[Rfam]
RNA: Small nucleolar RNA snoR97
RNA sequence: CUAUUAAUUUCGGUUUAGGGUCUGAAAAACUCAUAUAGUCAUGUGUUGUCAUCAGCUUCUUCUCUUGCACUUUUCACGAGAUUGGAGUUAAAUAACAGCACUACAUUU
Number, nucleotide and partner (000 for none) at each position: 001c000002u000003a000004u000005u000006a000007a000008u000009u000010u000011c000012g000013g000014u000015u000016u000017a000018g000019g000020g000021u000022c000023u000024g000025a000026a000027a000028a000029a000030c000031u000032c000033a000034u000035a000036u000037a000038g000039u000040c000041a000042u000043g101044u100045g099046u098047u097048g096049u000050c000051a000052u000053c000054a089055g088056c087057u086058u085059c084060u000061u081062c080063u079064c078065u000066u000067g000068c000069a000070c000071u000072u000073u000074u000075c000076a000077c000078g064079a063080g062081a061082u000083u000084g059085g058086a057087g056088u055089u054090a000091a000092a000093u000094a000095a000096c048097a047098g046099c045100a044101c043102u000103a000104c000105a000106u000107u000108u000